[Rfam]
RNA sequence: AGUGAGGAUAGAGGUGCAAAAACCAUUAGUAAGCUGCCGGAGGAUAAUGAGGUCUGAAGAGGGCUGCUAAAAGGGGAAUUUGCCGAAGUGGAAAAGAACUCAUAUUUCUGUUCCACUGGUUCUGUAUUAAAUAGAUACAGGGCUGUCAUAUAACUUGUUUAGUUAUAUGGAGGGCUAUCUCACGC
Number, nucleotide and partner (000 for none) at each position: 001a000002g000003u000004g000005a000006g180007g179008a178009u177010a176011g175012a000013g000014g000015u000016g083017c082018a081019a080020a079021a000022a000023c076024c075025a000026u000027u000028a000029g000030u000031a000032a068033g067034c066035u000036g064037c063038c062039g000040g000041a000042g000043g000044a000045u000046a000047a000048u000049g000050a000051g000052g000053u000054c000055u000056g000057a000058a000059g000060a000061g000062g038063g037064c036065u000066g034067c033068u032069a000070a000071a000072a000073g000074g000075g024076g023077a000078a000079u020080u019081u018082g017083c016084c000085g000086a000087a117088g116089u115090g114091g113092a112093a111094a000095a109096g108097a107098a106099c000100u000101c000102a000103u000104a000105u000106u098107u097108c096109u095110g000111u093112u092113c091114c090115a089116c088117u087118g144119g143120u142121u141122c140123u139124g138125u137126a136127u135128u134129a000130a000131a000132u000133a000134g128135a127136u126137a125138c124139a123140g122141g121142g120143c119144u118145g000146u170147c169148a168149u167150a166151u165152a164153a000154c000155u000156u000157g000158u000159u000160u000161a000162g000163u000164u152165a151166u150167a149168u148169g147170g146171a000172g000173g000174g000175c011176u010177a009178u008179c007180u006181c000182a000183c000184g000185c000